[Rfam]
RNA sequence: UGAGCCAACUAAACAGUCGCUCAGCAUAGCUGGGAGGAAAGUCCGGGCUCCAUAGAGCAGAGUGCCAGGUAAUCCCUGGGAAGCGAAAGCUUACGGAAAGUGCAACAGAAAGUAUACCACUGUCAAAAUUUCGAUAGUAAGGGUGAAAUGGUGUGGUAAGAGCGCACCGCGUUUUCUGGUAACAGAAACGGCAUUGGUAAACCCCACUCGGAGCAAGGCCAAAUAAAAAUCUUUAUUGUGUGGCUCGCACUGGAUUUUGGGUAGGCUGCUUGAGAUGUGUGGUGACACACAUCCUAGAUAGAUGACUGUUCACGACAGAACCCGGCUUAUCAGGUGGCUUUAUUU
Numbered sequence: 001u002g003a004g005c006c007a008a009c010u011a012a013a014c015a016g017u018c019g020c021u022c023a024g025c026a027u028a029g030c031u032g033g034g035a036g037g038a039a040a041g042u043c044c045g046g047g048c049u050c051c052a053u054a055g056a057g058c059a060g061a062g063u064g065c066c067a068g069g070u071a072a073u074c075c076c077u078g079g080g081a082a083g084c085g086a087a088a089g090c091u092u093a094c095g096g097a098a099a100g101u102g103c104a105a106c107a108g109a110a111a112g113u114a115u116a117c118c119a120c121u122g123u124c125a126a127a128a129u130u131u132c133g134a135u136a137g138u139a140a141g142g143g144u145g146a147a148a149u150g151g152u153g154u155g156g157u158a159a160g161a162g163c164g165c166a167c168c169g170c171g172u173u174u175u176c177u178g179g180u181a182a183c184a185g186a187a188a189c190g191g192c193a194u195u196g197g198u199a200a201a202c203c204c205c206a207c208u209c210g211g212a213g214c215a216a217g218g219c220c221a222a223a224u225a226a227a228a229a230u231c232u233u234u235a236u237u238g239u240g241u242g243g244c245u246c247g248c249a250c251u252g253g254a255u256u257u258u259g260g261g262u263a264g265g266c267u268g269c270u271u272g273a274g275a276u277g278u279g280u281g282g283u284g285a286c287a288c289a290c291a292u293c294c295u296a297g298a299u300a301g302a303u304g305a306c307u308g309u310u311c312a313c314g315a316c317a318g319a320a321c322c323c324g325g326c327u328u329a330u331c332a333g334g335u336g337g338c339u340u341u342a343u344u345u
Stems, first nucleotide, its partner, number of pairs: 002340006009333002011330001012310007020034006039328003043325005048213004055246004060209005065079005080094001081092004095204002100202002102198002117142002119138006126131001150168006169192001170190004175186004217267004226258006238250004274293008

Shown here is a 345-nucleotide RNA sequence from a Coxiella-like endosymbiont, a member of the family "Bacterial RNase P class A".
It scores 313 bits against the family's covariance model.
It is annotated as a ribozyme.